Background:
This 247-nucleotide RNA sequence from Strigops habroptila belongs to the Rfam family "Small nucleolar RNA SNORD17". The snoRNA HBI-43 belongs to the C/D family of snoRNAs, guiding 2'O-ribose methylation at position U3797 of the 28S rRNA. Pseudouridylation in position U3797 is predicted to be guided by the H/ACA snoRNA ACA48. Lineage of the source: Eukaryota > Dipnotetrapodomorpha > Sauria > Archelosauria > Strigops. Rfam links the family to the GO terms nucleolus and RNA processing. By type it is a C/D-box small nucleolar RNA. The literature on the family includes a 2001 paper in EMBO J by Huttenhofer et al., "RNomics: an experimental approach that identifies 201 candidates for novel, small, non-messenger RNAs in mouse".
RNA sequence: GUGAGGUGAUGACAAAGUUUAUCCAUUCUCUGAGCGCAGUGGUGCUGCCCUCCUGCAGCACCCCGAUUCCUGUUCUAGGGUCUGGGUGCUGUGCAGCCUCCAGAGACCCUCUGCUCUCCCAGUGUCCUACUGGGGGCUGGUGUGGUCUGUGGCUGGCUGCCUGCAGGAGUGAAGUGGUGCUGGCAUGGUUGGAGCCCCUCUCUGGGGGGCUCUGUCCUCACUGAGAUGAGGGAUGAUGUCUGAUCAC
Numbered sequence: 001g002u003g004a005g006g007u008g009a010u011g012a013c014a015a016a017g018u019u020u021a022u023c024c025a026u027u028c029u030c031u032g033a034g035c036g037c038a039g040u041g042g043u044g045c046u047g048c049c050c051u052c053c054u055g056c057a058g059c060a061c062c063c064c065g066a067u068u069c070c071u072g073u074u075c076u077a078g079g080g081u082c083u084g085g086g087u088g089c090u091g092u093g094c095a096g097c098c099u100c101c102a103g104a105g106a107c108c109c110u111c112u113g114c115u116c117u118c119c120c121a122g123u124g125u126c127c128u129a130c131u132g133g134g135g136g137c138u139g140g141u142g143u144g145g146u147c148u149g150u151g152g153c154u155g156g157c158u159g160c161c162u163g164c165a166g167g168a169g170u171g172a173a174g175u176g177g178u179g180c181u182g183g184c185a186u187g188g189u190u191g192g193a194g195c196c197c198c199u200c201u202c203u204g205g206g207g208g209g210c211u212c213u214g215u216c217c218u219c220a221c222u223g224a225g226a227u228g229a230g231g232g233a234u235g236a237u238g239u240c241u242g243a244u245c246a247c
Stems, first nucleotide, its partner, number of pairs: 010246003017239002020236001023232002026230003030225002034221001039184002042181001043179006050171001051168007059088005065082001068080004093160006106146002111140003115136002118134007187217002190214004195209004